RpsF leader: an 85-nucleotide RNA sequence from Xenorhabdus szentirmaii. It is annotated as a cis-regulatory leader. Gene Ontology terms of the family: protein binding and negative regulation of translation. A search with the family's covariance model found it, with a score of 98 bits. The organism belongs to Xenorhabdus szentirmaii, within Bacteria. About the family: Conserved and widely distributed to many bacterial species RNA structure. It precedes operon containing rpsF, which encodes ribosomal protein S6. For this family Rfam cites "Bacterial RNA motif in the 5' UTR of rpsF interacts with an S6:S18 complex" (Fu et al., RNA, 2014). The base pairs follow the family's consensus structure.

RNA sequence: GCCGUACUAAACACGUUCCUUGCCUCCAUGGGCCACGGCUGACCCUGACAGGAGGCUGAAUAAUCCGUAAGGAGCAAUGCUAAUG
Numbered sequence: 001g002c003c004g005u006a007c008u009a010a011a012c013a014c015g016u017u018c019c020u021u022g023c024c025u026c027c028a029u030g031g032g033c034c035a036c037g038g039c040u041g042a043c044c045c046u047g048a049c050a051g052g053a054g055g056c057u058g059a060a061u062a063a064u065c066c067g068u069a070a071g072g073a074g075c076a077a078u079g080c081u082a083a084u085g
Stems, first nucleotide, its partner, number of pairs: 015075007022056006030045003